RNA: Small nucleolar RNA SNORA75
RNA sequence: AUCUUCUCAUGAGCUCCUCUCUGCCUGACCGUGGCAGAGCAUGGAUUCGCCUGAGAAGUAGAUUCACACUCACAUUAAUUACGAGUCUCUUCUCUUUGAUUGGGAGUUGCUUAUGUCUGGUGUGAGACAACA
Numbered sequence: 001a002u003c004u005u006c007u008c009a010u011g012a013g014c015u016c017c018u019c020u021c022u023g024c025c026u027g028a029c030c031g032u033g034g035c036a037g038a039g040c041a042u043g044g045a046u047u048c049g050c051c052u053g054a055g056a057a058g059u060a061g062a063u064u065c066a067c068a069c070u071c072a073c074a075u076u077a078a079u080u081a082c083g084a085g086u087c088u089c090u091u092c093u094c095u096u097u098g099a100u101u102g103g104g105a106g107u108u109g110c111u112u113a114u115g116u117c118u119g120g121u122g123u124g125a126g127a128c129a130a131c132a
Base pairs, nucleotide, nucleotide: 003058004057005056006055007054008053013050014049015045016044017043021037022036023035024034025033070125071124072123073122074121075120089106090105091104092103093102